[Rfam]
RNA sequence: AGCCAUGUGAUGAACACAAAGUGAACUAUUCUUUUGCCUUUUACUAAAGAAUACCGUGUGUUUGUUACAAUCAAUGGCAUACUCUAAUUUUUGAAGGGUGUUUAACAUUAAACACCC
Numbered sequence: 001a002g003c004c005a006u007g008u009g010a011u012g013a014a015c016a017c018a019a020a021g022u023g024a025a026c027u028a029u030u031c032u033u034u035u036g037c038c039u040u041u042u043a044c045u046a047a048a049g050a051a052u053a054c055c056g057u058g059u060g061u062u063u064g065u066u067a068c069a070a071u072c073a074a075u076g077g078c079a080u081a082c083u084c085u086a087a088u089u090u091u092u093g094a095a096g097g098g099u100g101u102u103u104a105a106c107a108u109u110a111a112a113c114a115c116c117c
Stems, first nucleotide, its partner, number of pairs: 003077004008067011027053008097116006
RNA: U5 spliceosomal RNA
Organism: Ipomoea nil